[Rfam]
RNA sequence: UAACUGGCUCAGUCGUGUGGUUACUUCGAACUUCGUAUUAUAGAAAUAAUCACUGAAAAAAACCUUAACCACUGACGCAAUCCAGUUAAUUU
Numbered sequence: 001u002a003a004c005u006g007g008c009u010c011a012g013u014c015g016u017g018u019g020g021u022u023a024c025u026u027c028g029a030a031c032u033u034c035g036u037a038u039u040a041u042a043g044a045a046a047u048a049a050u051c052a053c054u055g056a057a058a059a060a061a062a063c064c065u066u067a068a069c070c071a072c073u074g075a076c077g078c079a080a081u082c083c084a085g086u087u088a089a090u091u092u
Base pairs, nucleotide, nucleotide: 002087003086004085005084006083007082012076013075014074015073017072018071019070020069025057026056027055028054